RNA sequence: GAGUUUCAGGGCUCCGAUCCUCCUCCCCGGACCCCUGUAGGAAUAGCGGCACUCCUCCUCCCAGCCGCUGUUCGGUUCUUUUGGAAAGCCUGCCGCACCUCCUCCCGCGGCAGGCUUUUCAG
Numbered sequence: 001g002a003g004u005u006u007c008a009g010g011g012c013u014c015c016g017a018u019c020c021u022c023c024u025c026c027c028c029g030g031a032c033c034c035c036u037g038u039a040g041g042a043a044u045a046g047c048g049g050c051a052c053u054c055c056u057c058c059u060c061c062c063a064g065c066c067g068c069u070g071u072u073c074g075g076u077u078c079u080u081u082u083g084g085a086a087a088g089c090c091u092g093c094c095g096c097a098c099c100u101c102c103u104c105c106c107g108c109g110g111c112a113g114g115c116u117u118u119u120c121a122g
Stems, first nucleotide, its partner, number of pairs: 007037001009035003013031003041073010086117011
RNA: Alphaproteobacterial ar14
Organism: Rhizobium sp. Leaf371